[Rfam]
RNA sequence: UGCGACACCCAUCAAAGGGGUAGUUCCCCAUAUAGGAGUUACUUUACCAUAUUCCGAAUUC
Numbered sequence: 001u002g003c004g005a006c007a008c009c010c011a012u013c014a015a016a017g018g019g020g021u022a023g024u025u026c027c028c029c030a031u032a033u034a035g036g037a038g039u040u041a042c043u044u045u046a047c048c049a050u051a052u053u054c055c056g057a058a059u060u061c
Stems, first nucleotide, its partner, number of pairs: 017045011
This 61-nucleotide sequence from Macleaya cordata belongs to the Rfam family "Plastid-psbN 5UTR RNA".
For this family Rfam cites "Retrograde signaling in plants: A critical review focusing on the GUN pathway and beyond" (Richter et al., Plant Commun, 2023).
It is annotated as a cis-regulatory element.
The organism belongs to Macleaya, within Eukaryota.
Plastid psbN is a non-coding RNA (ncRNA) recognised in plastids. It was reported as a conserved 11 stem-loop in the prime untranslated region (5UTR) of psbN genes. It has been reported that the motif is retained in a subset of mature transcripts in barley, which can suggests a possible role in transcript alternative 5 prime processing.
The family's consensus secondary structure was predicted with LocARNA.